[Rfam]
The record is a 151-nucleotide RNA from Lachancea mirantina, which matches "Small nucleolar RNA snR161" in Rfam. Pairs were carried over by alignment from the consensus structure, which was predicted with WAR.
RNA sequence: CAAAGUAAAAAUUACCAGUAUCAUUGGCUGUCUAUAUUUCUCCAACAUGUGGACGGUCUCUCUAAGCUGGAAGAAUGAGUAGAACGACUUAAGUUCUGUUGUGAAAUGGUUUUUUUAGUAAUUUCGUGACACUAUUGUGGUUCUUACAAAA
Numbered sequence: 001c002a003a004a005g006u007a008a009a010a011a012u013u014a015c016c017a018g019u020a021u022c023a024u025u026g027g028c029u030g031u032c033u034a035u036a037u038u039u040c041u042c043c044a045a046c047a048u049g050u051g052g053a054c055g056g057u058c059u060c061u062c063u064a065a066g067c068u069g070g071a072a073g074a075a076u077g078a079g080u081a082g083a084a085c086g087a088c089u090u091a092a093g094u095u096c097u098g099u100u101g102u103g104a105a106a107u108g109g110u111u112u113u114u115u116u117a118g119u120a121a122u123u124u125c126g127u128g129a130c131a132c133u134a135u136u137g138u139g140g141u142u143c144u145u146a147c148a149a150a151a
Stems, first nucleotide, its partner, number of pairs: 015070005027057010081144005087138002098130010111118002